[Rfam]
RNA sequence: GUCAUCGUAUUCACCUCAAUCCACAUGUAUUGGGUUGGAUUAGAGUGAAACUUGAACUAAAUUCCAUUCUAAUCCACACCAACACAUGUGGAUUGAGGUAAAUAAGACA
Number, nucleotide and partner (000 for none) at each position: 001g000002u000003c000004a000005u107006c106007g000008u104009a103010u102011u101012c000013a099014c098015c000016u096017c095018a094019a093020u092021c091022c090023a089024c088025a087026u086027g085028u084029a000030u082031u081032g080033g000034g000035u000036u076037g075038g074039a073040u072041u071042a070043g069044a000045g067046u066047g065048a000049a000050a000051c000052u000053u000054g000055a000056a000057c000058u000059a000060a000061a000062u000063u000064c000065c047066a046067u045068u000069c043070u042071a041072a040073u039074c038075c037076a036077c000078a000079c000080c032081a031082a030083c000084a028085c027086a026087u025088g024089u023090g022091g021092a020093u019094u018095g017096a016097g000098g014099u013100a000101a011102a010103u009104a008105a000106g006107a005108c000109a000

Rfam assigns this 109-nucleotide RNA from Miscanthus lutarioriparius to the family "MIR5565 microRNA precursor family".
Rfam links the family to the GO terms RISC complex and miRNA-mediated post-transcriptional gene silencing.
Taxonomically the source falls in Miscanthus (Eukaryota, Streptophyta, Petrosaviidae, Andropogoneae).